Rfam assigns this 76-nucleotide RNA sequence from Jejuibacter calystegiae to the family "Enterobacterial sRNA STnc240".
Pairs were carried over by alignment from the consensus structure, which was predicted with WAR.
It scores 77 bits against the family's covariance model.
RNA sequence: AUUUCCUGGUGCAAAAUACGCGCCCUGCAAAACGAGAGAUUAACCGACGUUGAAAAGGCGUCGGUUAUUUUUUUGC
Numbered sequence: 001a002u003u004u005c006c007u008g009g010u011g012c013a014a015a016a017u018a019c020g021c022g023c024c025c026u027g028c029a030a031a032a033c034g035a036g037a038g039a040u041u042a043a044c045c046g047a048c049g050u051u052g053a054a055a056a057g058g059c060g061u062c063g064g065u066u067a068u069u070u071u072u073u074u075g076c
Stems, first nucleotide, its partner, number of pairs: 011021002041067009

NCBI's taxonomy places the organism under Bacteria, Pseudomonadati, Gammaproteobacteria, Enterobacterales, Jejuibacter. It is annotated as a small RNA.